RNA sequence: AAAGCAGACUGCAAUUGCAGUGCUUCCUUCCGUGGGAGCCCUGCCAUGUCCCUGCUGAGAGCAAGCAGCACUGUUCCCUGGGAUUCGAUCUCGCCUCUUUCCUGGCGAAACCCGUCUCCUUUGAGCAGUGACAAGC
Numbered sequence: 001a002a003a004g005c006a007g008a009c010u011g012c013a014a015u016u017g018c019a020g021u022g023c024u025u026c027c028u029u030c031c032g033u034g035g036g037a038g039c040c041c042u043g044c045c046a047u048g049u050c051c052c053u054g055c056u057g058a059g060a061g062c063a064a065g066c067a068g069c070a071c072u073g074u075u076c077c078c079u080g081g082g083a084u085u086c087g088a089u090c091u092c093g094c095c096u097c098u099u100u101c102c103u104g105g106c107g108a109a110a111c112c113c114g115u116c117u118c119c120u121u122u123g124a125g126c127a128g129u130g131a132c133a134a135g136c
Stems, first nucleotide, its partner, number of pairs: 003056005018043003022039005069130008080120001086114001087112001089110001091108005
The record is a 136-nucleotide RNA from Anolis carolinensis, which matches "Small nucleolar RNA SNORA69" in Rfam. The family's RNA type in Rfam is H/ACA-box small nucleolar RNA. The organism belongs to Anolis, within Eukaryota. Rfam describes the family as follows. U69 is a member of the H/ACA class of small nucleolar RNAs (snoRNAs) which act as guides in the the modification of uridines to pseudouridines. Its family is annotated with RNA processing and nucleolus in the Gene Ontology.